RNA: RNase E 5' UTR element
RNA sequence: AUUUCCGCUCUGAUACUUUGUUAUAACAAGAAGUUUUGCGGAAUUACCCAUUUUGUCUGAGCGUUCAUCCACGCAGCAAUGGCGUAAGACGUUAUGAACUUUCAGACAGUUACGGGCUGCGGGUUGCAGACCUUACCGGUAUACGGAAUCUUCUCUGGCGAAACCAAUCCAGGCUGUUCCCAAGGACUAAUUGCGCUGCUUUUCCGGUUGAAAAGCAGGCUACCGAUACUUUGCGCCUCAUAGCACGCGACAACCGGGAGGUUGACGGCGAUGCUCACUAGUCACGAGGCCAUCGGUUCUUAUCCGGCGAGUCGUCCCAUGCCCGCAGCUCUGUCACUAA
Numbered sequence: 001a002u003u004u005c006c007g008c009u010c011u012g013a014u015a016c017u018u019u020g021u022u023a024u025a026a027c028a029a030g031a032a033g034u035u036u037u038g039c040g041g042a043a044u045u046a047c048c049c050a051u052u053u054u055g056u057c058u059g060a061g062c063g064u065u066c067a068u069c070c071a072c073g074c075a076g077c078a079a080u081g082g083c084g085u086a087a088g089a090c091g092u093u094a095u096g097a098a099c100u101u102u103c104a105g106a107c108a109g110u111u112a113c114g115g116g117c118u119g120c121g122g123g124u125u126g127c128a129g130a131c132c133u134u135a136c137c138g139g140u141a142u143a144c145g146g147a148a149u150c151u152u153c154u155c156u157g158g159c160g161a162a163a164c165c166a167a168u169c170c171a172g173g174c175u176g177u178u179c180c181c182a183a184g185g186a187c188u189a190a191u192u193g194c195g196c197u198g199c200u201u202u203u204c205c206g207g208u209u210g211a212a213a214a215g216c217a218g219g220c221u222a223c224c225g226a227u228a229c230u231u232u233g234c235g236c237c238u239c240a241u242a243g244c245a246c247g248c249g250a251c252a253a254c255c256g257g258g259a260g261g262u263u264g265a266c267g268g269c270g271a272u273g274c275u276c277a278c279u280a281g282u283c284a285c286g287a288g289g290c291c292a293u294c295g296g297u298u299c300u301u302a303u304c305c306g307g308c309g310a311g312u313c314g315u316c317c318c319a320u321g322c323c324c325g326c327a328g329c330u331c332u333g334u335c336a337c338u339a340a
Stems, first nucleotide, its partner, number of pairs: 003043006017030005053109008064098004071092003076083002114331011133310002136307004145180005154173005193220002196218004201213004222297005235290005248267002251264005
Dot-bracket structure: ..((((((........(((((....))))).......)))))).........((((((((...((((...(((..((....))......)))..))))...))))))))....(((((((((((........((.((((.....(((((....(((((..........)))))..)))))............((.((((.((((.....)))).)))))).(((((........(((((........((.(((((....))))).))..................)))))..)))))......)))).))..........))))))))))).........